[Rfam]
Shown here is a 74-nucleotide RNA from Equus caballus, a member of the family "mir-769 microRNA precursor family". The base pairs follow the family's consensus structure, which was predicted with RNAalifold. Rfam's curators put it in the seed alignment.
RNA sequence: GCCCGGAAACCUCUGGGUUCUGAGCUGUGACGUGGCUUCUGAGCUGGGAUCUCGGGGGUCUUGGUUCAUGGUUU
Number, nucleotide and partner (000 for none) at each position: 001g067002c000003c000004c064005g000006g062007a061008a000009a059010c058011c057012u056013c055014u000015g053016g052017g051018u000019u049020c048021u047022g000023a045024g044025c043026u042027g000028u000029g000030a000031c000032g000033u000034g000035g000036c000037u000038u000039c000040u000041g000042a026043g025044c024045u023046g000047g021048g020049a019050u000051c017052u016053c015054g000055g013056g012057g011058g010059u009060c000061u007062u006063g000064g004065u000066u000067c001068a000069u000070g000071g000072u000073u000074u000